The family of this 100-nucleotide sequence from Fusobacterium necrogenes is "Purine riboswitch aptamer". The family's consensus secondary structure is taken from published work. Lineage of the source: Bacteria > Fusobacteriati > Fusobacteriota > Fusobacteriaceae > Fusobacterium.
RNA sequence: AAAUGAUUUUAUGUAAUAUCUCAUAUAUCCCUGAAAUAUGGUCAGGAGUUUCUACGGUUUACCAAUGUAAUAAACUGCUAUGAGUUAGAAUAAAAAGUUU
Numbered sequence: 001a002a003a004u005g006a007u008u009u010u011a012u013g014u015a016a017u018a019u020c021u022c023a024u025a026u027a028u029c030c031c032u033g034a035a036a037u038a039u040g041g042u043c044a045g046g047a048g049u050u051u052c053u054a055c056g057g058u059u060u061a062c063c064a065a066u067g068u069a070a071u072a073a074a075c076u077g078c079u080a081u082g083a084g085u086u087a088g089a090a091u092a093a094a095a096a097g098u099u100u
Base pairs, nucleotide, nucleotide: 018086020084021083022082023081024080025079030046031045032044033043034042056076057075058074059073060072061071